[Rfam]
Small nucleolar RNA SNORA31: a 122-nucleotide RNA sequence from Fukomys damarensis. It scores 75 bits against the family's covariance model. Gene Ontology terms of the family: nucleolus and RNA processing. ACA31 (SNORA31) belongs to the H/ACA class of snoRNAs which are thought to guide the sites of modification of uridines to pseudouridines. ACA31 is predicted to guide the pseudouridylation of U3713 in 28S rRNA and U218 in 18S rRNA. This family includes the mouse homologue snoMBI-161. The organism belongs to Fukomys, within Eukaryota. A reference for the family is Huttenhofer et al. (2001), "RNomics: an experimental approach that identifies 201 candidates for novel, small, non-messenger RNAs in mouse", EMBO J.
RNA sequence: CUGUAUCCACUGAUGGACCUUGACCAAUUUGUUGUACUUUUGGUUUGCACUAAGAUGUGAAAAGAAAUAUCCCUGUGCUCUCUGAGUUUGUGGCAGCCCAGGUUGAAUAUGGGAAUACAUCU
Dot-bracket structure: .((((((...((.((((((..(..(((....)))..)....))))))))....))))))..........((((....(..((((.(.......)....))))..).....))))........